[Rfam]
This 47-nucleotide RNA sequence from Cobetia sp. UCD-24C belongs to the Rfam family "Guanidine-II riboswitch aptamer (mini-ykkC)". The literature on the family includes a 2007 paper in Nucleic Acids Res by Weinberg et al., "Identification of 22 candidate structured RNAs in bacteria using the CMfinder comparative genomics pipeline". It scores 38 bits against the family's covariance model. The source organism's lineage runs through Bacteria, Pseudomonadota, Gammaproteobacteria, Halomonadaceae and Cobetia.
RNA sequence: GCUACCGGACGACCGGCAGCUCACAGUUUGAAGGCGGGACGACCCGC
Numbered sequence: 001g002c003u004a005c006c007g008g009a010c011g012a013c014c015g016g017c018a019g020c021u022c023a024c025a026g027u028u029u030g031a032a033g034g035c036g037g038g039a040c041g042a043c044c045c046g047c
Stems, first nucleotide, its partner, number of pairs: 001020003005016004034047005